[Rfam]
RNA sequence: ACACUGUAAAAGAAGUUUUGUCGCUGUGUUCUUGAACUACAUAUCGUAGGAGAGCGAUGUCAGAUGUGUAGACAGUGU
Numbered sequence: 001a002c003a004c005u006g007u008a009a010a011a012g013a014a015g016u017u018u019u020g021u022c023g024c025u026g027u028g029u030u031c032u033u034g035a036a037c038u039a040c041a042u043a044u045c046g047u048a049g050g051a052g053a054g055c056g057a058u059g060u061c062a063g064a065u066g067u068g069u070a071g072a073c074a075g076u077g078u
Stems, first nucleotide, its partner, number of pairs: 001078006010033004038070008

Shown here is a 78-nucleotide RNA sequence from Xenococcus sp. PCC 7305, a member of the family "CyVA-1 RNA". Rfam classes the family as a small RNA. Taxonomically the source falls in Xenococcus (Bacteria, Bacillati, Cyanobacteriota, Cyanophyceae). From the family's description: Cyanobacteria, Acidobacteria (1 example), Verrucomicrobia (1 example).